Shown here is a 104-nucleotide RNA sequence from Jaculus jaculus, a member of the family "Small nucleolar RNA SNORD46".
U40 is a C/D box small nucleolar RNA, also known as snoZ153 in plants. The human sequence has also been annotated in the sequence databases as U46. U40 is encoded in intron 2 of the ribosomal protein S8 gene in human, and is hypothesised to guide methylation of 2'-O-ribose residues on 28S ribosomal RNA. This family represents vertebrate U40.
The literature on the family includes a 1996 paper in J Mol Biol by Nicoloso et al., "Intron-encoded, antisense small nucleolar RNAs: the characterization of nine novel species points to their direct role as guides for the 2'-O-ribose methylation of rRNAs".
The pairing is the family consensus, mapped onto this sequence.
By type it is a C/D-box small nucleolar RNA.
NCBI's taxonomy places the organism under Eukaryota, Tetrapoda, Euarchontoglires, Rodentia, Jaculus.
RNA sequence: AACCAGAGUGAUGAAAAAGCAUCCUUAGGCGUGGUUUUGACCGUCUUGGUCAUUUCUUUGCCACUUGCCAAUGUAAGGACUUGUCAUAGUUACACUGACUUGUU
Numbered sequence: 001a002a003c004c005a006g007a008g009u010g011a012u013g014a015a016a017a018a019g020c021a022u023c024c025u026u027a028g029g030c031g032u033g034g035u036u037u038u039g040a041c042c043g044u045c046u047u048g049g050u051c052a053u054u055u056c057u058u059u060g061c062c063a064c065u066u067g068c069c070a071a072u073g074u075a076a077g078g079a080c081u082u083g084u085c086a087u088a089g090u091u092a093c094a095c096u097g098a099c100u101u102g103u104u
Base pairs, nucleotide, nucleotide: 001104002103003102005100006099